[Rfam]
RNA: L31-Firmicutes ribosomal protein leader
RNA sequence: CUAUGGCUACAAAGCCAUGGCGGAAGGAG
Numbered sequence: 001c002u003a004u005g006g007c008u009a010c011a012a013a014g015c016c017a018u019g020g021c022g023g024a025a026g027g028a029g
Stems, first nucleotide, its partner, number of pairs: 001020008